[Rfam]
RNA: Archaeal RNase P
RNA sequence: GAGAGAGGAAGGGCAGCUGCCGGUCUUCUCCUUAUCUUUGAACGAAGGCUGAGGAAAGUCCCCCCACCAUAAAAAACACGAAUGCCGAGAGGGCAUAAGGCGAGAGUCUUGGCUCUGGUAUAGAAACGAUACCGCACCAUACCUAUGCGAUGAUUCCGGGAGGAUGAGGUCGUAUGGCUGCGGAUGGAACGACCAACCUCGUGGGUGCAAGCCCGUAUCGUAUAGGGCGCAUAGAUAAAUGCUGCGGAAACAGAAGGGGGCUUACUCUCCUCACUC
Numbered sequence: 001g002a003g004a005g006a007g008g009a010a011g012g013g014c015a016g017c018u019g020c021c022g023g024u025c026u027u028c029u030c031c032u033u034a035u036c037u038u039u040g041a042a043c044g045a046a047g048g049c050u051g052a053g054g055a056a057a058g059u060c061c062c063c064c065c066a067c068c069a070u071a072a073a074a075a076a077c078a079c080g081a082a083u084g085c086c087g088a089g090a091g092g093g094c095a096u097a098a099g100g101c102g103a104g105a106g107u108c109u110u111g112g113c114u115c116u117g118g119u120a121u122a123g124a125a126a127c128g129a130u131a132c133c134g135c136a137c138c139a140u141a142c143c144u145a146u147g148c149g150a151u152g153a154u155u156c157c158g159g160g161a162g163g164a165u166g167a168g169g170u171c172g173u174a175u176g177g178c179u180g181c182g183g184a185u186g187g188a189a190c191g192a193c194c195a196a197c198c199u200c201g202u203g204g205g206u207g208c209a210a211g212c213c214c215g216u217a218u219c220g221u222a223u224a225g226g227g228c229g230c231a232u233a234g235a236u237a238a239a240u241g242c243u244g245c246g247g248a249a250a251c252a253g254a255a256g257g258g259g260g261c262u263u264a265c266u267c268u269c270c271u272c273a274c275u276c
Stems, first nucleotide, its partner, number of pairs: 001276003005272005010266002013245005021051008056263003060260005065207004077203005082096005097110005111198002116195004132183005137177006155164002211228004